[Rfam]
RNA sequence: GCCCCGUCUUAGCUUGAGUAAGAUAAUAACGUAGUUCACUUAGCAAUUACGCAGUAGGUAUUUGUGCUUAUUUGCAUAAAUAGAAGGGAAUUUAUACGGUGUUCAGUUUUGUAAUAGCUAACACAUAUUUAAGGAACCCAACA
Numbered sequence: 001g002c003c004c005c006g007u008c009u010u011a012g013c014u015u016g017a018g019u020a021a022g023a024u025a026a027u028a029a030c031g032u033a034g035u036u037c038a039c040u041u042a043g044c045a046a047u048u049a050c051g052c053a054g055u056a057g058g059u060a061u062u063u064g065u066g067c068u069u070a071u072u073u074g075c076a077u078a079a080a081u082a083g084a085a086g087g088g089a090a091u092u093u094a095u096a097c098g099g100u101g102u103u104c105a106g107u108u109u110u111g112u113a114a115u116a117g118c119u120a121a122c123a124c125a126u127a128u129u130u131a132a133g134g135a136a137c138c139c140a141a142c143a
Base pairs, nucleotide, nucleotide: 006024007023008022009021010020011019031050032049033048034047035046036045059082060081061080062079063078064077065076066075067074100123101122102121103120105119106118107117108116